[Rfam]
Nucleotides: 054
Stems, first nucleotide, its partner, number of pairs: 013043001014041003020036006
Number, partner (000 for none) and nucleotide at each position: 001000c002000u003000a004000u005000u006000u007000u008000g009000c010000u011000c012000c013043u014041g015040u016039a017000a018000g019000u020036c021035g022034c023033u024032c025031u026000g027000g028000a029000u030000a031025a032024g033023a034022g035021c036020g037000u038000c039016u040015g041014c042000u043013a044000a045000a046000u047000g048000a049000c050000c051000a052000a053000u054000u